[Rfam]
RNA sequence: CCUGCUGUACGACCAGCAGUUGCCUAUCCAGACAUGCGUAACCGGUAACGGUUGGGUGUGAAGCUCUGGAGACAACGCGCCUCUCGACUGACGGUUCACCCCGGCGACGGGGAAGGAAUCGACACGAGAGCGUUCAUUUUGGUGGGGUGG
Numbered sequence: 001c002c003u004g005c006u007g008u009a010c011g012a013c014c015a016g017c018a019g020u021u022g023c024c025u026a027u028c029c030a031g032a033c034a035u036g037c038g039u040a041a042c043c044g045g046u047a048a049c050g051g052u053u054g055g056g057u058g059u060g061a062a063g064c065u066c067u068g069g070a071g072a073c074a075a076c077g078c079g080c081c082u083c084u085c086g087a088c089u090g091a092c093g094g095u096u097c098a099c100c101c102c103g104g105c106g107a108c109g110g111g112g113a114a115g116g117a118a119u120c121g122a123c124a125c126g127a128g129a130g131c132g133u134u135c136a137u138u139u140u141g142g143u144g145g146g147g148u149g150g
Base pairs, nucleotide, nucleotide: 002019003018004017005016006015007014028069029068030067031066032065033060034059035058036057037056039054040053041052042051043050044049084091085090095116096115102109103108122143123142125141126140127139128138
The record is a 150-nucleotide sequence from Paraburkholderia ultramafica, which matches "Group II catalytic intron D1-D4-7" in Rfam. It scores 88 bits against the family's covariance model. Rfam describes the family as follows. Group II introns are found in rRNA, tRNA and mRNA of organelles in fungi, plants and protists, and also in mRNA in bacteria.